[Rfam]
RNA sequence: UUCUUAUCCAGAGAGGUGAAGGGACUGGCCCGUUGAAGCCUCGGCAACAGACUGCUUGCAGUACUGUGCCAAUUCCAGAAGCUUAAUGCUUGAAGAUAAGAA
Numbered sequence: 001u002u003c004u005u006a007u008c009c010a011g012a013g014a015g016g017u018g019a020a021g022g023g024a025c026u027g028g029c030c031c032g033u034u035g036a037a038g039c040c041u042c043g044g045c046a047a048c049a050g051a052c053u054g055c056u057u058g059c060a061g062u063a064c065u066g067u068g069c070c071a072a073u074u075c076c077a078g079a080a081g082c083u084u085a086a087u088g089c090u091u092g093a094a095g096a097u098a099a100g101a102a
Stems, first nucleotide, its partner, number of pairs: 001102008013042005021031003025078004043070004048066002051062004074094001079091004
Rfam assigns this 102-nucleotide RNA sequence from Virgibacillus pantothenticus to the family "SAM riboswitch aptamer (S box leader)".
The organism belongs to Virgibacillus, within Bacteria.
The family's consensus secondary structure is taken from published work.